[Rfam]
Nucleotides: 096
Base pairs, nucleotide, nucleotide: 002023003022004021005020006019008018009017029055030054032052033051034050035049036048037047056094057093058092059091060090063087064086065085066084067083068082069081071080072079073078
Number, partner (000 for none) and nucleotide at each position: 001000c002023g003022c004021g005020a006019g007000g008018c009017c010000g011000g012000g013000u014000u015000u016000c017009g018008g019006c020005u021004c022003g023002c024000u025000g026000a027000a028000c029055g030054g031000g032052c033051g034050c035049c036048g037047g038000a039000u040000c041000a042000g043000g044000c045000a046000g047037c048036c049035g050034g051033c052032g053000a054030c055029c056094c057093u058092u059091g060090u061000c062000a063087u064086c065085a066084c067083g068082u069081u070000g071080c072079u073078c074000c075000a076000a077000g078073g079072a080071g081069g082068a083067u084066g085065u086064g087063g088000u089000c090060a091059u092058g093057a094056g095000g096000a